[Rfam]
RNA sequence: UUGCAGGUGGUGUUCAUUUUUUUUAAUUCAGAUGAAUCCGCGGGGCCGGCUUGCGCAAUGCCGUACCUUCGCCGUCAUGCAA
Numbered sequence: 001u002u003g004c005a006g007g008u009g010g011u012g013u014u015c016a017u018u019u020u021u022u023u024u025a026a027u028u029c030a031g032a033u034g035a036a037u038c039c040g041c042g043g044g045g046c047c048g049g050c051u052u053g054c055g056c057a058a059u060g061c062c063g064u065a066c067c068u069u070c071g072c073c074g075u076c077a078u079g080c081a082a
Stems, first nucleotide, its partner, number of pairs: 001082005007075006013036007042069004047063003
RNA: S6-S18-Chlorobi ribosomal protein leader